Description:
The record is a 102-nucleotide RNA sequence from Paenibacillus bovis, which matches "Purine riboswitch aptamer" in Rfam. NCBI's taxonomy places the organism under Bacteria, Bacillota, Bacilli, Paenibacillaceae, Paenibacillus.
RNA sequence: CGAUGCAACAAUUGAAUGACUCGUAUAAAACCGGGAAUACGGCCCGGAAGUUUCUACCCGGAAACCGUAAAUUUCCGGACUACGAGGGUGAACAGCGAAUGG
Numbered sequence: 001c002g003a004u005g006c007a008a009c010a011a012u013u014g015a016a017u018g019a020c021u022c023g024u025a026u027a028a029a030a031c032c033g034g035g036a037a038u039a040c041g042g043c044c045c046g047g048a049a050g051u052u053u054c055u056a057c058c059c060g061g062a063a064a065c066c067g068u069a070a071a072u073u074u075c076c077g078g079a080c081u082a083c084g085a086g087g088g089u090g091a092a093c094a095g096c097g098a099a100u101g102g
Base pairs, nucleotide, nucleotide: 020086021085022084023083024082025081031047032046033045034044035043058078059077060076061075062074063073064072